[Rfam]
RNA: msiK RNA
RNA sequence: GGGGCUGUUCCUUCUACUCGGAUCGUCCGGCACGUUCCUGCCGGUGGAAAGGAAGUCGAU
Numbered sequence: 001g002g003g004g005c006u007g008u009u010c011c012u013u014c015u016a017c018u019c020g021g022a023u024c025g026u027c028c029g030g031c032a033c034g035u036u037c038c039u040g041c042c043g044g045u046g047g048a049a050a051g052g053a054a055g056u057c058g059a060u
Stems, first nucleotide, its partner, number of pairs: 010051001012049005027044006